[Rfam]
RNA sequence: CCAGUCGAAACAUGUCGAAGCAUGACCUCCGUCGAGGUAGUCUGUGGGGUAGAGCUACUGAUUAGCGGCCCUGACUCCGAGAGGAGUCAGACCGCUUGUCAAACUCCGAACCCACAGACGCUGUUGACGCGGGGAAUCCGGUGUGCGGGGUAAGCCUGUGCACCAGGAGGGGGACAACCCAGAGUUGGGUUAAGGUCCCAAAGUGCGAGCUAAGUGUGAUCUUAAAGGUGGUCCCGAGCCCUAGACAGCCGGGAGGUGAGCUUAGAAGCAGCUACCCUCUAAGAAAAGCGUAACAGCUUACCGGCCGAGGUUCGGGGCGCCCAAAAUGAUCGGGGCUCAAGCUCGCCACCGAUACCCAACCGCGCCCGUGAAACGGCGAUUGAGUAGACUGGCGCUCCGGUCGGAUGGAAGCUCGGGCGAGAGCUCGCGUGGACCGACCGGAAACGAAAAU
Numbered sequence: 001c002c003a004g005u006c007g008a009a010a011c012a013u014g015u016c017g018a019a020g021c022a023u024g025a026c027c028u029c030c031g032u033c034g035a036g037g038u039a040g041u042c043u044g045u046g047g048g049g050u051a052g053a054g055c056u057a058c059u060g061a062u063u064a065g066c067g068g069c070c071c072u073g074a075c076u077c078c079g080a081g082a083g084g085a086g087u088c089a090g091a092c093c094g095c096u097u098g099u100c101a102a103a104c105u106c107c108g109a110a111c112c113c114a115c116a117g118a119c120g121c122u123g124u125u126g127a128c129g130c131g132g133g134g135a136a137u138c139c140g141g142u143g144u145g146c147g148g149g150g151u152a153a154g155c156c157u158g159u160g161c162a163c164c165a166g167g168a169g170g171g172g173g174a175c176a177a178c179c180c181a182g183a184g185u186u187g188g189g190u191u192a193a194g195g196u197c198c199c200a201a202a203g204u205g206c207g208a209g210c211u212a213a214g215u216g217u218g219a220u221c222u223u224a225a226a227g228g229u230g231g232u233c234c235c236g237a238g239c240c241c242u243a244g245a246c247a248g249c250c251g252g253g254a255g256g257u258g259a260g261c262u263u264a265g266a267a268g269c270a271g272c273u274a275c276c277c278u279c280u281a282a283g284a285a286a287a288g289c290g291u292a293a294c295a296g297c298u299u300a301c302c303g304g305c306c307g308a309g310g311u312u313c314g315g316g317g318c319g320c321c322c323a324a325a326a327u328g329a330u331c332g333g334g335g336c337u338c339a340a341g342c343u344c345g346c347c348a349c350c351g352a353u354a355c356c357c358a359a360c361c362g363c364g365c366c367c368g369u370g371a372a373a374c375g376g377c378g379a380u381u382g383a384g385u386a387g388a389c390u391g392g393c394g395c396u397c398c399g400g401u402c403g404g405a406u407g408g409a410a411g412c413u414c415g416g417g418c419g420a421g422a423g424c425u426c427g428c429g430u431g432g433a434c435c436g437a438c439c440g441g442a443a444a445c446g447a448a449a450a451u
Base pairs, nucleotide, nucleotide: 001392002391003390004389005388006387011024012023013022014021015020027134028133029132030131031130032129036122037121038120040119041118042117043116044115045114046113047112052107053105054104060100061099062098064096065095066094067093068092073088074087075086076085077084078083140164141163142162143161144160145159146158147157148156169180170179171178184360185359186358187357188356189355190354194350195349196348203347205346206345207344208343209342210341227321228320229319231318232317233316234315235314236313237312238311239310240309248305249304250303251302252301254278255277256276259273260272261271279283284299288297289296361382362381363378364377365376366375393446396442397441398440399439400438401437402436403435404434411430412429414427415426416425417424418423

Archaeal large subunit ribosomal RNA: a 451-nucleotide part of an RNA from Salinarchaeum sp. IM2453. The base pairs follow the family's consensus structure, which is taken from published work. The match comes from Rfam's covariance-model search (2849 bits). Lineage of the source: Archaea > Methanobacteriati > Halobacteria > Halobacteriales > Salinarchaeum.